The family of this 155-nucleotide RNA from Pseudotamlana haliotis is "Flavo-1 RNA". The source organism's lineage runs through Bacteria, Pseudomonadati, Flavobacteriia, Flavobacteriaceae and Pseudotamlana. Rfam classes the family as a small RNA. The family's consensus secondary structure is taken from published work.
RNA sequence: ACUUAGCAAGCACGCCCGCGUUAGCGAUUGUAGCGGCAUCCUUUUUAAAUUUUAAGAACGUGAUUUUUGUUUUAACACCAAACCACUAAUAGAACGACUUCUUUAAAUUUUAAUCGAAAUAAUUUAAAAAGAUAUAGCGGAAAGCGCGACCCUUG
Numbered sequence: 001a002c003u004u005a006g007c008a009a010g011c012a013c014g015c016c017c018g019c020g021u022u023a024g025c026g027a028u029u030g031u032a033g034c035g036g037c038a039u040c041c042u043u044u045u046u047a048a049a050u051u052u053u054a055a056g057a058a059c060g061u062g063a064u065u066u067u068u069g070u071u072u073u074a075a076c077a078c079c080a081a082a083c084c085a086c087u088a089a090u091a092g093a094a095c096g097a098c099u100u101c102u103u104u105a106a107a108u109u110u111u112a113a114u115c116g117a118a119a120u121a122a123u124u125u126a127a128a129a130a131g132a133u134a135u136a137g138c139g140g141a142a143a144g145c146g147c148g149a150c151c152c153u154u155g
Stems, first nucleotide, its partner, number of pairs: 024147003028143002033138002038133003044128008